[Rfam]
RNA sequence: GGGAUAUGAUGAGUGGUCAAAACUCGCAAUUAAUAAGUGAAAUGGGUGUCCAGCCCAGCCUGGUUACGACAACCAUGGGCACUUUCUUUUUUACCGAUCUAAUCCC
Numbered sequence: 001g002g003g004a005u006a007u008g009a010u011g012a013g014u015g016g017u018c019a020a021a022a023c024u025c026g027c028a029a030u031u032a033a034u035a036a037g038u039g040a041a042a043u044g045g046g047u048g049u050c051c052a053g054c055c056c057a058g059c060c061u062g063g064u065u066a067c068g069a070c071a072a073c074c075a076u077g078g079g080c081a082c083u084u085u086c087u088u089u090u091u092u093a094c095c096g097a098u099c100u101a102a103u104c105c106c
Base pairs, nucleotide, nucleotide: 001106002105003104004103014096015095016094017093024040025039026038027037044084045083046082047081048080049079050078061075062074063073064072
Background: This 106-nucleotide RNA from Nicotiana tabacum belongs to the Rfam family "Small nucleolar RNA Z279/snoR105/snoR108". A reference for the family is Marker et al. (2002), "Experimental RNomics: identification of 140 candidates for small non-messenger RNAs in the plant Arabidopsis thaliana", Curr Biol. The base pairs follow the family's consensus structure, which was predicted with PFOLD. The source organism's lineage runs through Eukaryota, lamiids, Solanales, Nicotianeae and Nicotiana. It scores 74 bits against the family's covariance model.